RNA: Potassium channel RNA editing signal
Organism: Dicaeum eximium
RNA sequence: GCAGGUACGGGGACAUGGUGCCCAAGACCAUCGCGGGGAAGAUCUUUGGCUCCAUCUGCUCGCUGAGCGGGGUGCUGGUCAUCGCCCUGCCCGUGCCCGUCAUCGUCUCCAAC
Numbered sequence: 001g002c003a004g005g006u007a008c009g010g011g012g013a014c015a016u017g018g019u020g021c022c023c024a025a026g027a028c029c030a031u032c033g034c035g036g037g038g039a040a041g042a043u044c045u046u047u048g049g050c051u052c053c054a055u056c057u058g059c060u061c062g063c064u065g066a067g068c069g070g071g072g073u074g075c076u077g078g079u080c081a082u083c084g085c086c087c088u089g090c091c092c093g094u095g096c097c098c099g100u101c102a103u104c105g106u107c108u109c110c111a112a113c
Base pairs, nucleotide, nucleotide: 001113004110005109007106008105009104010103012101013100014099017096020094021093036076037075039073049061